[Rfam]
Record summary: The family of this 72-nucleotide sequence from Ornithorhynchus anatinus is "Small nucleolar RNA SNORD73". NCBI's taxonomy places the organism under Eukaryota, Opisthokonta, Teleostomi, Prototheria, Ornithorhynchus. The sequence is in the family's curated seed alignment. Rfam 15.1 lists 769 matches to the family in 586 species. It is annotated as a C/D-box small nucleolar RNA.

RNA sequence: GAUGUGUGAUGACAAAAUGUUUCGGUCCCAAAUGACAUUCCAUGAUUUGACUGUUGCAUUUUUCCUGACAUC
Numbered sequence: 001g002a003u004g005u006g007u008g009a010u011g012a013c014a015a016a017a018u019g020u021u022u023c024g025g026u027c028c029c030a031a032a033u034g035a036c037a038u039u040c041c042a043u044g045a046u047u048u049g050a051c052u053g054u055u056g057c058a059u060u061u062u063u064c065c066u067g068a069c070a071u072c
Base pairs, nucleotide, nucleotide: 001072002071003070004069